[Rfam]
RNA sequence: UAUUAUAUAGGUGAUGGAGUUCACCAUUAAAUGCUUAAGAAGCUAAUGACUCCUACUCUUUU
Numbered sequence: 001u002a003u004u005a006u007a008u009a010g011g012u013g014a015u016g017g018a019g020u021u022c023a024c025c026a027u028u029a030a031a032u033g034c035u036u037a038a039g040a041a042g043c044u045a046a047u048g049a050c051u052c053c054u055a056c057u058c059u060u061u062u
Base pairs, nucleotide, nucleotide: 010025011024012023013022016053017052018051019050020049021048033043034042035041

The record is a 62-nucleotide RNA from Clostridium chauvoei, which matches "Fluoride riboswitch aptamer (crcB RNA motif)" in Rfam. The source organism's lineage runs through Bacteria, Bacillota, Clostridia, Eubacteriales and Clostridium chauvoei. The family's consensus secondary structure is taken from published work. Gene Ontology terms of the family: response to fluoride and positive regulation of gene expression. A search with the family's covariance model found it, with a score of 57 bits. For this family Rfam cites "Widespread genetic switches and toxicity resistance proteins for fluoride" (Baker et al., Science, 2012).